This 123-nucleotide RNA sequence from Rhinolophus ferrumequinum belongs to the Rfam family "Small nucleolar RNA SNORA32". Rfam links the family to the GO terms nucleolus and RNA processing. It scores 119 bits against the family's covariance model.
RNA sequence: UGGUCAUUACCAAGGCUUUUAGAAUGGAGUUUCUCAUUUGCUGUGGACAUGACUACAGAACAUUUUUCCACCCUAGGUUUUCUUUCUGCUAUUUUGCUAGCACUCAGCUUAUUGGAAACAUUU
Numbered sequence: 001u002g003g004u005c006a007u008u009a010c011c012a013a014g015g016c017u018u019u020u021a022g023a024a025u026g027g028a029g030u031u032u033c034u035c036a037u038u039u040g041c042u043g044u045g046g047a048c049a050u051g052a053c054u055a056c057a058g059a060a061c062a063u064u065u066u067u068c069c070a071c072c073c074u075a076g077g078u079u080u081u082c083u084u085u086c087u088g089c090u091a092u093u094u095u096g097c098u099a100g101c102a103c104u105c106a107g108c109u110u111a112u113u114g115g116a117a118a119c120a121u122u123u
Stems, first nucleotide, its partner, number of pairs: 003053005010046003026041001028039002067116004076109004087102003